[Rfam]
RNA sequence: GCCGCCUAAACGCCGAGGCCCCGAUCGCGGGACGAGGCGUGCCGGGGACCCAGGUAGUCCCGGGGUGAAGCCGCUCCUUUCCGGGCGGCCGGGCAGCUUCCCGCCCGAACCCGUCAGCUAACCCGGUCGGCGGUUUCGAUGGGAAGA
Numbered sequence: 001g002c003c004g005c006c007u008a009a010a011c012g013c014c015g016a017g018g019c020c021c022c023g024a025u026c027g028c029g030g031g032a033c034g035a036g037g038c039g040u041g042c043c044g045g046g047g048a049c050c051c052a053g054g055u056a057g058u059c060c061c062g063g064g065g066u067g068a069a070g071c072c073g074c075u076c077c078u079u080u081c082c083g084g085g086c087g088g089c090c091g092g093g094c095a096g097c098u099u100c101c102c103g104c105c106c107g108a109a110c111c112c113g114u115c116a117g118c119u120a121a122c123c124c125g126g127u128c129g130g131c132g133g134u135u136u137c138g139a140u141g142g143g144a145a146g147a
Stems, first nucleotide, its partner, number of pairs: 003132004010040005041127006051062001063112003071088004091106004
Shown here is a 147-nucleotide sequence from Actinoplanes missouriensis, a member of the family "c-di-AMP riboswitch aptamer (ydaO/yuaA leader)". It scores 72 bits against the family's covariance model. The organism belongs to Actinoplanes missouriensis, within Bacteria.